[Rfam]
RNA sequence: AAGACUAUACUUUCAGGGAUCAUUUCUAGAGUUUCUGACUUGAGGAAUGUGUUUCUAAAGUGUUUGGUCUCGCUGACCACGAUGAUGUUCGUGAUAUUCCUUUCUGAGCGUGAAGCUGACAGAGAGUAAUGAUUCACUUCGUAUGCUCUCUGUUAUUGAUGAUCAUUCUUUGCUUCUUUAUGGAAUAUUGAGGAAGGGAAUAUGAUCUGAGUGGC
Numbered sequence: 001a002a003g004a005c006u007a008u009a010c011u012u013u014c015a016g017g018g019a020u021c022a023u024u025u026c027u028a029g030a031g032u033u034u035c036u037g038a039c040u041u042g043a044g045g046a047a048u049g050u051g052u053u054u055c056u057a058a059a060g061u062g063u064u065u066g067g068u069c070u071c072g073c074u075g076a077c078c079a080c081g082a083u084g085a086u087g088u089u090c091g092u093g094a095u096a097u098u099c100c101u102u103u104c105u106g107a108g109c110g111u112g113a114a115g116c117u118g119a120c121a122g123a124g125a126g127u128a129a130u131g132a133u134u135c136a137c138u139u140c141g142u143a144u145g146c147u148c149u150c151u152g153u154u155a156u157u158g159a160u161g162a163u164c165a166u167u168c169u170u171u172g173c174u175u176c177u178u179u180a181u182g183g184a185a186u187a188u189u190g191a192g193g194a195a196g197g198g199a200a201u202a203u204g205a206u207c208u209g210a211g212u213g214g215c
Stems, first nucleotide, its partner, number of pairs: 001041003005037001007034001009032003015027004051064001055062001077214004094203012108166001110164001118154004124148004129142004170190001174185003
RNA: Small nucleolar RNA U3